[Rfam]
Rfam assigns this 87-nucleotide sequence from Eumeta japonica to the family "mir-263 microRNA precursor family". It scores 64 bits against the family's covariance model. The organism belongs to Eumeta, within Eukaryota. The family's consensus secondary structure was predicted with RNAalifold.

RNA sequence: CGGUGUGGAAUCUUGGCACUGGGAGGGAAUUCACAGUUGUUUUAAAUGUUAAUUCUGUGGUUCUUUGGGUGCCAAAUUUCCAUGCCG
Dot-bracket structure: ..((((((((..((((((.(.((...(((.((((((..................)))))))))).).).))))))..))))))))..
Numbered sequence: 001c002g003g004u005g006u007g008g009a010a011u012c013u014u015g016g017c018a019c020u021g022g023g024a025g026g027g028a029a030u031u032c033a034c035a036g037u038u039g040u041u042u043u044a045a046a047u048g049u050u051a052a053u054u055c056u057g058u059g060g061u062u063c064u065u066u067g068g069g070u071g072c073c074a075a076a077u078u079u080c081c082a083u084g085c086c087g
Stems, first nucleotide, its partner, number of pairs: 003085008013075006020068001022066001023064001027063003031060006